Notes:
Rfam assigns this 79-nucleotide RNA sequence from Hermetia illucens to the family "drz-agam-1 ribozyme". The organism belongs to Hermetia, within Eukaryota.

RNA sequence: UACUACUAAACCCUUUCUCCACCUCCACGUGGUGACCGCUGGAAGCUCUUUCUUAGCGAAAAUCUGCAGACGGAGAAGG
Numbered sequence: 001u002a003c004u005a006c007u008a009a010a011c012c013c014u015u016u017c018u019c020c021a022c023c024u025c026c027a028c029g030u031g032g033u034g035a036c037c038g039c040u041g042g043a044a045g046c047u048c049u050u051u052c053u054u055a056g057c058g059a060a061a062a063u064c065u066g067c068a069g070a071c072g073g074a075g076a077a078g079g
Stems, first nucleotide, its partner, number of pairs: 012079005018073002021033003044065002047062001049060002052058001